Shown here is a 184-nucleotide RNA sequence from Galemys pyrenaicus, a member of the family "Small Cajal body specific RNA 16".

RNA sequence: GUAGUCUGGGGAAAGACUCCUGUAUUGUUGAACUUGCCUAGCGAUGGGUGCAGCCCUGUACCAGGCAGCCCCAUCCUGACCCAAAGUAAUUUCCCAGGAGUUUAUCCUGGGUCUUGAAUUUGCAGUAAAAGGUGCGAAGAUUCUAACAGCAGUUUGAUAAUCAUGUAUGAUACUGCAAACAGCA
Numbered sequence: 001g002u003a004g005u006c007u008g009g010g011g012a013a014a015g016a017c018u019c020c021u022g023u024a025u026u027g028u029u030g031a032a033c034u035u036g037c038c039u040a041g042c043g044a045u046g047g048g049u050g051c052a053g054c055c056c057u058g059u060a061c062c063a064g065g066c067a068g069c070c071c072c073a074u075c076c077u078g079a080c081c082c083a084a085a086g087u088a089a090u091u092u093c094c095c096a097g098g099a100g101u102u103u104a105u106c107c108u109g110g111g112u113c114u115u116g117a118a119u120u121u122g123c124a125g126u127a128a129a130a131g132g133u134g135c136g137a138a139g140a141u142u143c144u145a146a147c148a149g150c151a152g153u154u155u156g157a158u159a160a161u162c163a164u165g166u167a168u169g170a171u172a173c174u175g176c177a178a179a180c181a182g183c184a
Stems, first nucleotide, its partner, number of pairs: 004080003008076003015070001017068002019065004025060001027054004032049003093111007119179009130168001136162002140158003145154003

Source information:
Gene Ontology terms of the family: nucleolus and RNA processing. About the family: scaRNAs are a specific class of small nuclear RNAs which localise to the Cajal bodies and guide the modification of RNA polymerase II transcribed spliceosomal RNAs U1, U2, U4, U5 and U12. ACA47 belongs to the H/ACA box class of guide RNAs as it has the predicted hairpin-hinge-hairpin-tail structure, the conserved H/ACA-box motifs and is found associated with GAR1. ACA47 is predicted to guide the pseudouridylation of residue U5 of the U1 spliceosomal snRNA. A search with the family's covariance model found it, with a score of 161 bits. Rfam 15.1 lists 790 matches to the family in 514 species. A reference for the family is Darzacq et al. (2002), "Cajal body-specific small nuclear RNAs: a novel class of 2'-O-methylation and pseudouridylation guide RNAs", EMBO J.